RNA sequence: AAAAUACCCCUUUUAUUACAGUGCUUUAUUUUAUGAACAUACCACCAUUAUCCUGCUGAAAGAAAAGCUAUAUUCAUCAUUUUUUAUUUUGCCUUUCUGAGGGUAAACUCAUGAUAGGUUGACAUGGACAAUU
Numbered sequence: 001a002a003a004a005u006a007c008c009c010c011u012u013u014u015a016u017u018a019c020a021g022u023g024c025u026u027u028a029u030u031u032u033a034u035g036a037a038c039a040u041a042c043c044a045c046c047a048u049u050a051u052c053c054u055g056c057u058g059a060a061a062g063a064a065a066a067g068c069u070a071u072a073u074u075c076a077u078c079a080u081u082u083u084u085u086a087u088u089u090u091g092c093c094u095u096u097c098u099g100a101g102g103g104u105a106a107a108c109u110c111a112u113g114a115u116a117g118g119u120u121g122a123c124a125u126g127g128a129c130a131a132u133u
Stems, first nucleotide, its partner, number of pairs: 003057001005055002021042003026037002068127004073122002076119003084111001086109001088107008
About this RNA:
Rfam assigns this 133-nucleotide sequence from Urocitellus parryii to the family "Small nucleolar RNA SNORA69". The source organism's lineage runs through Eukaryota, Deuterostomia, Mammalia, Xerinae and Urocitellus. The family's consensus secondary structure was predicted with PFOLD. About the family: U69 is a member of the H/ACA class of small nucleolar RNAs (snoRNAs) which act as guides in the the modification of uridines to pseudouridines.